Notes
Rfam assigns this 91-nucleotide RNA from Desulfitobacterium hafniense to the family "c-di-GMP-I riboswitch aptamer". It is one of the family's seed sequences. The family's consensus secondary structure is taken from published work.

[Rfam]
RNA sequence: UAAAGUCAAGGGCAAACCUGCCUAAAGGCAGGGACGCAAAACCGUAGGAUCUAAGGUGCUUAAAAGGUGCUAUGAUAGCCUGGUUGCCAAU
Numbered sequence: 001u002a003a004a005g006u007c008a009a010g011g012g013c014a015a016a017c018c019u020g021c022c023u024a025a026a027g028g029c030a031g032g033g034a035c036g037c038a039a040a041a042c043c044g045u046a047g048g049a050u051c052u053a054a055g056g057u058g059c060u061u062a063a064a065a066g067g068u069g070c071u072a073u074g075a076u077a078g079c080c081u082g083g084u085u086g087c088c089a090a091u
Stems, first nucleotide, its partner, number of pairs: 012037002017032006040085004046081003049076003056070004